RNA sequence: UGAAGCCGCGCGGGAGAGACCGGGCCACCACCAGCGCGCCCGGCGCCGAAGGAGCAAAGCCUCCCCGGAACCUCUCAGGCACCCUGGACCGCGCGGACGAG
Number, nucleotide and partner (000 for none) at each position: 001u000002g000003a000004a000005g000006c096007c095008g094009c093010g092011c091012g090013g089014g000015a000016g000017a000018g000019a000020c043021c042022g041023g040024g039025c038026c000027a000028c000029c000030a000031c000032c000033a000034g000035c000036g000037c000038g025039c024040c023041c022042g021043g020044c000045g080046c079047c078048g076049a075050a000051g000052g074053a073054g072055c000056a000057a000058a000059g066060c000061c000062u000063c000064c000065c000066c059067g000068g000069a000070a000071c000072c054073u053074c052075u049076c048077a000078g047079g046080c045081a000082c000083c000084c000085u000086g000087g000088a000089c013090c012091g011092c010093g009094c008095g007096g006097a000098c000099g000100a000101g000
This 101-nucleotide RNA from Amycolatopsis methanolica belongs to the Rfam family "Glycine riboswitch aptamer". The match comes from Rfam's covariance-model search (56 bits).